[Rfam]
RNA sequence: CCACGCAGCCGGGGAGAUAGCGGUGCCCUGUACCUGCAAUCCGCUCUAGCAGGGGUGAUACCUCGCCCCGGACAGCUUACUGCGGGGCUGCCUUGUGAAAGUGGUGUUGACGUUUGGGUCUUACGCAAUGGGAAUCUGUGAACCGUGUCAGGGCAGGAAUGCAGCAGCACUAAGCGGAACCUCUCAUGUGCCGUAAGGUCGCCUGGACUGAGCUAACUACAUGAGUAACGCCCGUGGUAACUGUACAAAGCGAGGUGCGUGG
Numbered sequence: 001c002c003a004c005g006c007a008g009c010c011g012g013g014g015a016g017a018u019a020g021c022g023g024u025g026c027c028c029u030g031u032a033c034c035u036g037c038a039a040u041c042c043g044c045u046c047u048a049g050c051a052g053g054g055g056u057g058a059u060a061c062c063u064c065g066c067c068c069c070g071g072a073c074a075g076c077u078u079a080c081u082g083c084g085g086g087g088c089u090g091c092c093u094u095g096u097g098a099a100a101g102u103g104g105u106g107u108u109g110a111c112g113u114u115u116g117g118g119u120c121u122u123a124c125g126c127a128a129u130g131g132g133a134a135u136c137u138g139u140g141a142a143c144c145g146u147g148u149c150a151g152g153g154c155a156g157g158a159a160u161g162c163a164g165c166a167g168c169a170c171u172a173a174g175c176g177g178a179a180c181c182u183c184u185c186a187u188g189u190g191c192c193g194u195a196a197g198g199u200c201g202c203c204u205g206g207a208c209u210g211a212g213c214u215a216a217c218u219a220c221a222u223g224a225g226u227a228a229c230g231c232c233c234g235u236g237g238u239a240a241c242u243g244u245a246c247a248a249a250g251c252g253a254g255g256u257g258c259g260u261g262g
Stems, first nucleotide, its partner, number of pairs: 001262007008056003011029004016024001018022001033053005061255006070246001072244003077240010093224005101217002103214003112208008120197006126188002129186005135178005145170004153162003
RNA: Bacterial large signal recognition particle RNA
Organism: Enterocloster lavalensis